[Rfam]
RNA sequence: GUUGUCAUAGUAUAGUGGUCAGUACAGCACGUUGUGGCCGUGCAGACAAGAGUUCGAUUCUCUUUGACGACA
Number, nucleotide and partner (000 for none) at each position: 001g071002u070003u069004g068005u067006c066007a065008u000009a000010g025011u024012a023013u022014a000015g000016u000017g000018g000019u000020c000021a000022g013023u012024a011025c010026a000027g043028c042029a041030c040031g039032u000033u000034g000035u000036g000037g000038c000039c031040g030041u029042g028043c027044a000045g000046a000047c000048a064049a063050g062051a061052g060053u000054u000055c000056g000057a000058u000059u000060c052061u051062c050063u049064u048065u007066g006067a005068c004069g003070a002071c001072a000
Shown here is a 72-nucleotide RNA from Xylaria grammica, a member of the family "tRNA". The family's RNA type in Rfam is transfer RNA. Pairs were carried over by alignment from the consensus structure, which is taken from published work. The match comes from Rfam's covariance-model search (63 bits).